[Rfam]
RNA sequence: CGAGUUGGUUAGGCAAUCGCUGGUUUAUUGAAGCCCUUAACGUCAGUUUACUGAAAUGAGUGGGACAAAUAGACGAGAGGAAAGUCCGAGCUACAUAGGGCAGAGUGCCAGAUAACGUCUGGGCGGCGUGAGCCGACGACAAGUGCAACAGAGAGAAGACCGCCUAUUUUUAGGUAAGGGUGAAAGGGUGCGGUAAGAGCGCACCGCAUAGCUGGUAACAGUUUAUGGCAAGGUAAACUCCACUCGUAGCAAGACCAAAUAGGAAUCCAAUGUGUUGCCCGCACAGGAUUCGGGUAGGUUGCUUGAGCGAUAAAGUGAUUUAUCGCCUAGAGGAAUGAUUGCCCACGACAGAACUCGGCUUAUCGACCAACUCAAAAA
Number, nucleotide and partner (000 for none) at each position: 001c000002g373003a372004g371005u370006u369007g368008g367009u366010u365011a363012g343013g342014c341015a340016a339017u338018c337019g000020c077021u076022g000023g074024u073025u072026u071027a070028u069029u000030g000031a000032a000033g000034c000035c000036c000037u000038u000039a000040a000041c000042g000043u000044c000045a000046g000047u000048u000049u000050a000051c000052u000053g000054a000055a000056a000057u000058g000059a000060g000061u000062g000063g000064g000065a000066c000067a000068a000069a028070u027071a026072g025073a024074c023075g000076a021077g020078a000079g000080g000081a000082a361083a360084g359085u000086c358087c357088g356089a355090g354091c249092u248093a247094c246095a000096u000097a000098g280099g279100g278101c277102a000103g245104a244105g243106u242107g241108c122109c121110a120111g119112a118113u000114a000115a000116c000117g000118u112119c111120u110121g109122g108123g137124c135125g134126g133127c132128g000129u000130g000131a000132g127133c126134c125135g124136a000137c123138g240139a239140c000141a000142a000143g238144u237145g234146c233147a000148a000149c000150a000151g000152a000153g000154a000155g000156a000157a000158g000159a000160c179161c178162g175163c174164c173165u172166a171167u000168u000169u000170u000171u166172a165173g164174g163175u162176a000177a000178g161179g160180g000181u000182g000183a000184a000185a000186g000187g205188g204189u203190g202191c201192g200193g000194u000195a000196a000197g000198a000199g000200c192201g191202c190203a189204c188205c187206g229207c227208a226209u225210a224211g223212c221213u220214g219215g000216u000217a000218a000219c214220a213221g212222u000223u211224u210225a209226u208227g207228g000229c206230a000231a000232g000233g146234u145235a000236a000237a144238c143239u139240c138241c107242a106243c105244u104245c103246g094247u093248a092249g091250c000251a000252a000253g300254a299255c298256c297257a000258a000259a000260u000261a000262g000263g291264a290265a289266u288267c287268c286269a000270a000271u285272g284273u283274g282275u281276u000277g101278c100279c099280c098281g275282c274283a273284c272285a271286g268287g267288a266289u265290u264291c263292g000293g000294g000295u000296a000297g256298g255299u254300u253301g000302c000303u000304u000305g000306a000307g326308c325309g324310a323311u322312a321313a320314a319315g000316u000317g000318a000319u314320u313321u312322a311323u310324c309325g308326c307327c000328u000329a000330g000331a000332g000333g000334a000335a000336u000337g018338a017339u016340u015341g014342c013343c012344c000345a000346c000347g000348a000349c000350a000351g000352a000353a000354c090355u089356c088357g087358g086359c084360u083361u082362a000363u011364c000365g010366a009367c008368c007369a006370a005371c004372u003373c002374a000375a000376a000377a000378a000
RNA: Bacterial RNase P class A
Organism: Volucribacter psittacicida